[Rfam]
This 101-nucleotide RNA sequence from Citricoccus sp. SGAir0253 belongs to the Rfam family "SAM riboswitch aptamer (S box leader)". The base pairs follow the family's consensus structure, which is taken from published work.

RNA sequence: UAACCAUCCAGAGCGGCUGAGAGACCUGGCUCGACGACGCCGCAGCAACCCGGGGGGACCUCGUUCCCCACGACGGGUGCUAAGGCCAGGACCGAUGGAGA
Numbered sequence: 001u002a003a004c005c006a007u008c009c010a011g012a013g014c015g016g017c018u019g020a021g022a023g024a025c026c027u028g029g030c031u032c033g034a035c036g037a038c039g040c041c042g043c044a045g046c047a048a049c050c051c052g053g054g055g056g057g058a059c060c061u062c063g064u065u066c067c068c069c070a071c072g073a074c075g076g077g078u079g080c081u082a083a084g085g086c087c088a089g090g091a092c093c094g095a096u097g098g099a100g101a
Stems, first nucleotide, its partner, number of pairs: 001101001004098005013043005021032003026089004044081004049077002051072002085093001
Dot-bracket structure: (..(((((....(((((...(((..[[[[)))......)))))((((.((((..................))...))))))...(]]]]...))))))..)
Notes: Rfam 15.1 lists 9,625 matches to the family in 4,158 species. Rfam describes the family as follows. The SAM riboswitch is found upstream of a number of genes which code for proteins involved in methionine or cysteine biosynthesis in Gram-positive bacteria.